[Rfam]
A member of the RNA family "Glycine riboswitch aptamer" from Rhizobium gallicum, 90 nucleotides long. The match comes from Rfam's covariance-model search (61 bits). About the family: This family represents the bacterial glycine riboswitch. Glycine riboswitches usually consist of two metabolite-binding aptamers domains with similar structures in tandem. Taxonomically the source falls in Rhizobium gallicum bv. gallicum (Bacteria, Pseudomonadota, Rhizobiaceae, Rhizobium gallicum).
RNA sequence: AAAGACUAGACGGGAGAGAUCGGCGCCAGCCGACGCCGACGGAGCAACCCCCCAAGGAAACUCUCAGGCAAAGAAGACCGUCCUGUCGAA
Dot-bracket structure: .....(..(((((......((((......)))).(((((..(((...(.......)....))))).)))........)))))..).....